[Rfam]
RNA sequence: UUGAAAAGAAAUCUCCGAGCCGGGGAACCCUAAACUUAAACGGCAUGGAACCCGGCCGCCAGGGUGUGUUGGGAAACCGGCACGCCUCCCGUUGUGGAAAGGAGAGGCGAUUUUUCGGGG
Numbered sequence: 001u002u003g004a005a006a007a008g009a010a011a012u013c014u015c016c017g018a019g020c021c022g023g024g025g026a027a028c029c030c031u032a033a034a035c036u037u038a039a040a041c042g043g044c045a046u047g048g049a050a051c052c053c054g055g056c057c058g059c060c061a062g063g064g065u066g067u068g069u070u071g072g073g074a075a076a077c078c079g080g081c082a083c084g085c086c087u088c089c090c091g092u093u094g095u096g097g098a099a100a101g102g103a104g105a106g107g108c109g110a111u112u113u114u115u116c117g118g119g120g
Stems, first nucleotide, its partner, number of pairs: 003114002006111001012105005019056006029048002035043002062087011088097002
Dot-bracket structure: ..((.(.....(((((..((((((....((....((.....))...))..)))))).....(((((((((((....)))))))))))((......))...))))).....).))......
Molybdenum/Tungsten riboswitch aptamer (Moco RNA motif): a 120-nucleotide RNA sequence from Pelotomaculum thermopropionicum. The match comes from Rfam's covariance-model search (66 bits). The source organism's lineage runs through Bacteria, Bacillati, Bacillota, Pelotomaculum and Pelotomaculum thermopropionicum. Gene Ontology terms of the family: regulation of gene expression, molybdenum ion binding and tungstate binding.